The family of this 114-nucleotide RNA sequence from Acipenser ruthenus is "Potassium channel RNA editing signal". From the family's description: This family represents a group of sequences related to the human potassium channel Kv1.1 hairpin element which directs the efficient modification of an adenosine to inosine by an adenosine deaminase acting on RNA (ADAR). The ADAR modification causes an isoleucine/valine recoding event which lies in the ion-conducting pore of the potassium channel. It is thought that this editing event targets the process of fast inactivation and allows a more rapid recovery from inactivation at negative potentials. Pairs were carried over by alignment from the consensus structure, which is taken from published work. On this family, see Bhalla et al., Nat Struct Mol Biol 2004: "Control of human potassium channel inactivation by editing of a small mRNA hairpin". Rfam classes the family as a cis-regulatory element. NCBI's taxonomy places the organism under Eukaryota, Deuterostomia, Craniata, Acipenseridae, Acipenser.
RNA sequence: GUAGGGUAUGGAGAUAUCUAUCCUAAGACUCUUUUGGGUAAAAUAGUUGGGGGGCUUUGUUGUAUCGCUGGGGUGUUGGUGAUUGCUCUUCCUAUACCAAUUAUUGUGAACAAU
Numbered sequence: 001g002u003a004g005g006g007u008a009u010g011g012a013g014a015u016a017u018c019u020a021u022c023c024u025a026a027g028a029c030u031c032u033u034u035u036g037g038g039u040a041a042a043a044u045a046g047u048u049g050g051g052g053g054g055c056u057u058u059g060u061u062g063u064a065u066c067g068c069u070g071g072g073g074u075g076u077u078g079g080u081g082a083u084u085g086c087u088c089u090u091c092c093u094a095u096a097c098c099a100a101u102u103a104u105u106g107u108g109a110a111c112a113a114u
Stems, first nucleotide, its partner, number of pairs: 001114002004111001007108005013102003019096003037077004049063001051061001